[Rfam]
RNA sequence: GCCGACGUAGCUCAGCUGGUAGAGCAAUUGCUUCGUAAGCAAUGGGUCGUAGGUUCAAAUCCUAUCGUCGGCU
Dot-bracket structure: (((((((..((((........)))).(((((.......))))).....(((((.......)))))))))))).
Shown here is a 73-nucleotide RNA sequence from Endomicrobium proavitum, a member of the family "tRNA". The family's consensus secondary structure is taken from published work. It scores 72 bits against the family's covariance model.